The family of this 112-nucleotide RNA from Fictibacillus aquaticus is "BsrF". The source organism's lineage runs through Bacteria, Bacillati, Bacilli, Caryophanales and Fictibacillus.
[Rfam]
RNA sequence: GCGAUGAGCUAAUUUGCAUAAGACGAGAUUGACACGCCUUUUAGGCAAGGCACUAUGUGGAGUGCUGUCUCUCGCCGCAAUACGCACAAAAGACGCCUCCAGGGGCGUCUUU
Number, nucleotide and partner (000 for none) at each position: 001g000002c000003g000004a000005u000006g000007a000008g000009c000010u000011a000012a000013u000014u080015u079016g078017c077018a000019u000020a000021a000022g000023a000024c074025g073026a072027g071028a070029u000030u000031g069032a068033c067034a000035c000036g046037c045038c000039u000040u000041u000042u000043a000044g000045g037046c036047a000048a000049g066050g065051c000052a063053c062054u061055a000056u000057g000058u000059g000060g000061a054062g053063u052064g000065c050066u049067g033068u032069c031070u028071c027072u026073c025074g024075c000076c000077g017078c016079a015080a014081u000082a000083c000084g000085c000086a000087c000088a000089a112090a111091a110092g109093a108094c107095g106096c105097c104098u000099c000100c000101a000102g000103g000104g097105g096106c095107g094108u093109c092110u091111u090112u089
The literature on the family includes a 2008 paper in Gene by Saito et al., "Novel small RNA-encoding genes in the intergenic regions of Bacillus subtilis". The family's RNA type in Rfam is small RNA.